[Rfam]
RNA sequence: AGGAGCAGAGCGGGCUUGGCCUCUUCUCCCUCUGACUCUAUCCAUUCCAAGGUUGCGCUCGCUGUUUCUGUGGCUGACUUUCAGCGGGCAGAAGCCAGGGAAGGAGCAAAAGGAGCGAGAGAAAAACGCCAGCCGAGGCCAGGCGACCCCACUCGUGGCCCGUCUGCGCACUCCAGGGAUGCCUCCCGCGGGACCUGCGCUCUCCCGCGGAGCCCCGGCUACUGACAAGCAGAGGCGGCCGGUCCCUGCGUGCGGGGGCGCCCAAUGCGGCCGUCAAGAGUUCGGCUCUGUCAGCCUCAGGGUGCGCGGGGGACUGUGGGGCGAGCCCCAAGGCCGUGCGGGGGGGCGGGGGCACAGGGAGAGUAUCCGUGAUGGGCGUUCAGGAGGCUGGGCGUUCCCUCGAGUGGUGGGAGCUGCUCUCACGGCACCUCUCAGACACCC
Numbered sequence: 001a002g003g004a005g006c007a008g009a010g011c012g013g014g015c016u017u018g019g020c021c022u023c024u025u026c027u028c029c030c031u032c033u034g035a036c037u038c039u040a041u042c043c044a045u046u047c048c049a050a051g052g053u054u055g056c057g058c059u060c061g062c063u064g065u066u067u068c069u070g071u072g073g074c075u076g077a078c079u080u081u082c083a084g085c086g087g088g089c090a091g092a093a094g095c096c097a098g099g100g101a102a103g104g105a106g107c108a109a110a111a112g113g114a115g116c117g118a119g120a121g122a123a124a125a126a127c128g129c130c131a132g133c134c135g136a137g138g139c140c141a142g143g144c145g146a147c148c149c150c151a152c153u154c155g156u157g158g159c160c161c162g163u164c165u166g167c168g169c170a171c172u173c174c175a176g177g178g179a180u181g182c183c184u185c186c187c188g189c190g191g192g193a194c195c196u197g198c199g200c201u202c203u204c205c206c207g208c209g210g211a212g213c214c215c216c217g218g219c220u221a222c223u224g225a226c227a228a229g230c231a232g233a234g235g236c237g238g239c240c241g242g243u244c245c246c247u248g249c250g251u252g253c254g255g256g257g258g259c260g261c262c263c264a265a266u267g268c269g270g271c272c273g274u275c276a277a278g279a280g281u282u283c284g285g286c287u288c289u290g291u292c293a294g295c296c297u298c299a300g301g302g303u304g305c306g307c308g309g310g311g312g313a314c315u316g317u318g319g320g321g322c323g324a325g326c327c328c329c330a331a332g333g334c335c336g337u338g339c340g341g342g343g344g345g346g347c348g349g350g351g352g353c354a355c356a357g358g359g360a361g362a363g364u365a366u367c368c369g370u371g372a373u374g375g376g377c378g379u380u381c382a383g384g385a386g387g388c389u390g391g392g393c394g395u396u397c398c399c400u401c402g403a404g405u406g407g408u409g410g411g412a413g414c415u416g417c418u419c420u421c422a423c424g425g426c427a428c429c430u431c432u433c434a435g436a437c438a439c440c441c
Stems, first nucleotide, its partner, number of pairs: 005159002008154003012150003015145001018140005057089008073133004078128001079126003163358004168353002199327001201325001204321003213312004218307002222300004234275005240270001242268002277289004369433001371431002374428001376426002380422001390419005396412004
A member of the RNA family "Vertebrate telomerase RNA" from Vombatus ursinus, 441 nucleotides long.
Rfam classes the family as a non-coding RNA gene.
Rfam describes the family as follows. Telomerase is a ribonucleoprotein reverse transcriptase that synthesises telomeric DNA. Telomerase RNAs differ greatly in sequence and structure between vertebrates, ciliates and yeasts, but they share a 5' pseudoknot structure close to the template sequence. Vertebrate telomerase RNAs have a 3' H/ACA snoRNA-like domain.
The source organism's lineage runs through Eukaryota, Eumetazoa, Gnathostomata, Dipnotetrapodomorpha and Vombatus.